[Rfam]
RNA sequence: CGGGCCGCCUUUCAGGGGUCCUACAGUCGAGGAGCUCCGUCCUCUUCGGCGCUCCUCAUCGUCCAUGUUGCUCAAGGAGGAUAUGGCUAUGAGAA
Numbered sequence: 001c002g003g004g005c006c007g008c009c010u011u012u013c014a015g016g017g018g019u020c021c022u023a024c025a026g027u028c029g030a031g032g033a034g035c036u037c038c039g040u041c042c043u044c045u046u047c048g049g050c051g052c053u054c055c056u057c058a059u060c061g062u063c064c065a066u067g068u069u070g071c072u073c074a075a076g077g078a079g080g081a082u083a084u085g086g087c088u089a090u091g092a093g094a095a
Stems, first nucleotide, its partner, number of pairs: 002021005008016002031054001033053003037049003055093005063086007071079003